[Rfam]
RNA sequence: AAAAAGGGUGUUUGAUACUUCGAUGUCAUGCGUGACGAUGUCAUGCGGUUGCGUAGGGUAUGACAAUCAAGACAUACGUAAUUUUUGUCCUACUGGGGAUGUUGGCUGCCUCUUUGCACCGAUGCCCCA
Numbered sequence: 001a002a003a004a005a006g007g008g009u010g011u012u013u014g015a016u017a018c019u020u021c022g023a024u025g026u027c028a029u030g031c032g033u034g035a036c037g038a039u040g041u042c043a044u045g046c047g048g049u050u051g052c053g054u055a056g057g058g059u060a061u062g063a064c065a066a067u068c069a070a071g072a073c074a075u076a077c078g079u080a081a082u083u084u085u086u087g088u089c090c091u092a093c094u095g096g097g098g099a100u101g102u103u104g105g106c107u108g109c110c111u112c113u114u115u116g117c118a119c120c121g122a123u124g125c126c127c128c129a
Stems, first nucleotide, its partner, number of pairs: 008077001013028005029055008040046001059076004096127003101123005107118003
RNA: U11 spliceosomal RNA